[Rfam]
RNA: ZMP/ZTP riboswitch aptamer (pfl RNA motif)
RNA sequence: UCGACCGCGUGUGACUGGCGAUGAAGGUGGGCGACCACCGGGGAGCAGGCGGGCCAUAGACGCCGCUCGCCUGGGCACUUCUU
Dot-bracket structure: ..(.((((.(((..(([[[[[.....((((....))))..))..))).)))).).......(((..]]]]]..))).......